Source information:
EcpR1: a 112-nucleotide RNA from Paenirhizobium selenitireducens. The literature on the family includes a 2012 paper in RNA Biol by Wilms et al., "Deep sequencing uncovers numerous small RNAs on all four replicons of the plant pathogen Agrobacterium tumefaciens". From the family's description: Perviously named SmelC291, SmrC10, or Sra33. According to its overproduction phenotype it was renamed Elongated Cell Phenotype RNA1. Induced by stress,EcpR1 negatively regulates cell cycle master regulatory genes dnaA and gcrA at post-transcriptional level by base pairing between its strongly conserved GC-rich loop and the target mRNAs. It is annotated as a small RNA.
RNA sequence: AUGCCCCAUGAUGCUCAGGUCCGCCGCAUCUCCUGGGUCGUGGGGUCGGUCGGUUGGUACGCAAGUGAUAAACGGUUCCUCGUGCCGUAUUUGUGUACCGACCGACCCCCGU
Numbered sequence: 001a002u003g004c005c006c007c008a009u010g011a012u013g014c015u016c017a018g019g020u021c022c023g024c025c026g027c028a029u030c031u032c033c034u035g036g037g038u039c040g041u042g043g044g045g046u047c048g049g050u051c052g053g054u055u056g057g058u059a060c061g062c063a064a065g066u067g068a069u070a071a072a073c074g075g076u077u078c079c080u081c082g083u084g085c086c087g088u089a090u091u092u093g094u095g096u097a098c099c100g101a102c103c104g105a106c107c108c109c110c111g112u
Stems, first nucleotide, its partner, number of pairs: 003046008014037006048107011